[Rfam]
RNA sequence: UGCCGGGGUUCCAACCUCCGGGGUUACUGACGAGGCACUUAUUACAUCAUUGCCUGACGUGCGGUUCGGUAUCUCCCGAUCCAAUCAACGGCAUUCCCGACGCGGGAAAGCGCUUGUCUG
Numbered sequence: 001u002g003c004c005g006g007g008g009u010u011c012c013a014a015c016c017u018c019c020g021g022g023g024u025u026a027c028u029g030a031c032g033a034g035g036c037a038c039u040u041a042u043u044a045c046a047u048c049a050u051u052g053c054c055u056g057a058c059g060u061g062c063g064g065u066u067c068g069g070u071a072u073c074u075c076c077c078g079a080u081c082c083a084a085u086c087a088a089c090g091g092c093a094u095u096c097c098c099g100a101c102g103c104g105g106g107a108a109a110g111c112g113c114u115u116g117u118c119u120g
Base pairs, nucleotide, nucleotide: 001023003021004020005019006018007017008016034054035053036052037051087094103116104115105114106113
RNA: speF leader